[Rfam]
RNA sequence: CUUCACCGACCCCAGCCACAACGGCUCCUCGCGAUCCUGGCCAUAGGUGGCGAGCAAGGCCUGUGCCUC
Numbered sequence: 001c002u003u004c005a006c007c008g009a010c011c012c013c014a015g016c017c018a019c020a021a022c023g024g025c026u027c028c029u030c031g032c033g034a035u036c037c038u039g040g041c042c043a044u045a046g047g048u049g050g051c052g053a054g055c056a057a058g059g060c061c062u063g064u065g066c067c068u069c
Base pairs, nucleotide, nucleotide: 014026015025016024017023028065030063032059037054038053041050042049043048